[Rfam]
RNA sequence: UGGUUAAAAUACACUCAACGAUUUAAUUUUGUUAACUCACAUUAUAUCGUUAUUUAUUUUUAACCUAAAAAAAUCGUUCUUGAAUAAACUAUUAUAGGAAUAGUUAUCCCUGUUGUUUAUCUUUUGGUAGGCUACAAGGGUAAUUAUUACUAUAGUAGUAAUUGUUCUUGGAAGAGCCAUUCCAUAUUCCCAACGUUUUCAACGCCAGUAAGGCAGCUUCUCGUUAAGUAGUGUUGAAUUUGUUGAAUAAACGGAUUGGUACACAACCACCAAAAAAUAUGCAUUACUAUAUUG
Number, nucleotide and partner (000 for none) at each position: 001u000002g065003g064004u063005u062006a061007a060008a059009a000010u000011a000012c000013a000014c000015u000016c000017a051018a050019c049020g048021a047022u046023u000024u000025a043026a042027u041028u000029u000030u039031g038032u000033u000034a000035a000036c000037u000038c031039a030040c000041a027042u026043u025044a000045u000046a022047u021048c020049g019050u018051u017052a000053u000054u000055u000056a000057u000058u000059u008060u007061u006062a005063a004064c003065c002066u000067a000068a000069a000070a000071a000072a000073a000074u000075c000076g000077u000078u000079c000080u000081u269082g268083a000084a000085u000086a000087a166088a165089c164090u000091a162092u161093u160094a159095u000096a000097g000098g000099a000100a000101u000102a000103g000104u000105u000106a000107u000108c000109c000110c000111u000112g000113u000114u000115g000116u000117u000118u000119a000120u000121c000122u000123u000124u000125u000126g000127g000128u000129a000130g000131g000132c000133u000134a000135c000136a000137a000138g000139g000140g000141u000142a000143a000144u000145u000146a000147u000148u000149a000150c000151u000152a000153u000154a000155g000156u000157a000158g000159u094160a093161a092162u091163u000164g089165u088166u087167c000168u266169u265170g264171g000172a000173a000174g000175a000176g260177c259178c258179a257180u000181u255182c254183c253184a000185u000186a000187u000188u000189c000190c000191c000192a244193a243194c242195g241196u000197u000198u000199u237200c236201a235202a234203c233204g214205c213206c212207a000208g000209u000210a000211a000212g206213g205214c204215a000216g232217c231218u230219u000220c228221u227222c000223g000224u000225u000226a000227a221228g220229u000230a218231g217232u216233g203234u202235u201236g200237a199238a000239u000240u000241u195242g194243u193244u192245g252246a000247a000248u000249a000250a000251a000252c245253g183254g182255a181256u000257u179258g178259g177260u176261a000262c000263a000264c170265a169266a168267c000268c082269a081270c000271c000272a000273a000274a000275a000276a000277a000278u000279a000280u000281g000282c000283a000284u000285u000286a000287c000288u000289a000290u000291a000292u000293u000294g000
Annotation
Shown here is a 294-nucleotide sequence from Plasmodium yoelii, a member of the family "Plasmodium RNA of unkown function RUF1". Lineage of the source: Eukaryota > Apicomplexa > Haemosporida > Plasmodiidae > Plasmodium yoelii. A search with the family's covariance model found it, with a score of 108 bits. The family's consensus secondary structure was predicted with WAR. The literature on the family includes a 2007 paper in RNA by Chakrabarti et al., "Structural RNAs of known and unknown function identified in malaria parasites by comparative genomics and RNA analysis".